About this RNA
The record is a 286-nucleotide RNA from Ramphastos sulfuratus, which matches "Metazoan signal recognition particle RNA" in Rfam. The match comes from Rfam's covariance-model search (110 bits).
RNA sequence: GCUGGGCAAGGUGGCUUUUGCCUGUAAUCCAAGCACCAGGGAGGCUCAGACUGGUGGAUUGGCUCAAGCCUGGAGUUGCUGGGCUGCAGUAGAUGUCCAUGCUGAAGCUGACAUCAGUGUGAUGGUCUGGGAGGAACCAAGGGCCAUCAGGUUACCUAAGGAGGGAUGAACUGGCCCAGGUUGGAGAUGGAGAAGGUUGACACUCCUGUGUUGAUCAGUAAUGGGAUGGUACCUGUGAGCUAUCCCUGUAGCAGAGCCCAGGUGGGAGAGCAGGGCCCAGUUUCCU
Numbered sequence: 001g002c003u004g005g006g007c008a009a010g011g012u013g014g015c016u017u018u019u020g021c022c023u024g025u026a027a028u029c030c031a032a033g034c035a036c037c038a039g040g041g042a043g044g045c046u047c048a049g050a051c052u053g054g055u056g057g058a059u060u061g062g063c064u065c066a067a068g069c070c071u072g073g074a075g076u077u078g079c080u081g082g083g084c085u086g087c088a089g090u091a092g093a094u095g096u097c098c099a100u101g102c103u104g105a106a107g108c109u110g111a112c113a114u115c116a117g118u119g120u121g122a123u124g125g126u127c128u129g130g131g132a133g134g135a136a137c138c139a140a141g142g143g144c145c146a147u148c149a150g151g152u153u154a155c156c157u158a159a160g161g162a163g164g165g166a167u168g169a170a171c172u173g174g175c176c177c178a179g180g181u182u183g184g185a186g187a188u189g190g191a192g193a194a195g196g197u198u199g200a201c202a203c204u205c206c207u208g209u210g211u212u213g214a215u216c217a218g219u220a221a222u223g224g225g226a227u228g229g230u231a232c233c234u235g236u237g238a239g240c241u242a243u244c245c246c247u248g249u250a251g252c253a254g255a256g257c258c259c260a261g262g263u264g265g266g267a268g269a270g271c272a273g274g275g276c277c278c279a280g281u282u283u284c285c286u
Stems, first nucleotide, its partner, number of pairs: 001045003004023008028042003048283007059274002062271003065266001068263006078257003083252005089236004094231003097225002100223002103220002107215001109213006116153003120149009131138001155161002162207004167202002172199005181190003

The family's consensus secondary structure is taken from published work.
The signal recognition particle (SRP) is a universally conserved ribonucleoprotein. It is involved in the co-translational targeting of proteins to membranes.
Rfam links the family to the GO terms SRP-dependent cotranslational protein targeting to membrane, signal sequence recognition and signal recognition particle, endoplasmic reticulum targeting.